The family of this 105-nucleotide sequence from Medicago truncatula is "MIR1507 microRNA precursor family". Pairs were carried over by alignment from the consensus structure, which was predicted with RNAalifold. It is one of the family's seed sequences. Gene Ontology terms of the family: RISC complex and miRNA-mediated post-transcriptional gene silencing.
Nucleotides: 105
Stems, first nucleotide, its partner, number of pairs: 005100004011094004015089001017087012031073002034071005048058004
Number, partner (000 for none) and nucleotide at each position: 001000u002000g003000g004000u005100g006099u007098u008097g009000a010000g011094u012093a013092g014091a015089g016000u017087u018086g019085u020084a021083u022082g023081g024080a025079a026078c027077g028076a029000a030000a031073g032072a033000u034071g035070g036069g037068a038067a039000u040000u041000u042000c043000u044000u045000g046000u047000u048058g049057a050056a051055u052000u053000c054000u055051a056050u057049u058048c059000a060000u061000u062000c063000a064000a065000u066000u067038u068037u069036c070035c071034c072032u073031c074000c075000c076028u077027c078026g079025u080024u081023c082022c083021a084020u085019a086018c087017a088000u089015c090000a091014u092013c093012u094011a095000g096000c097008c098007a099006a100005u101000a102000c103000u104000g105000u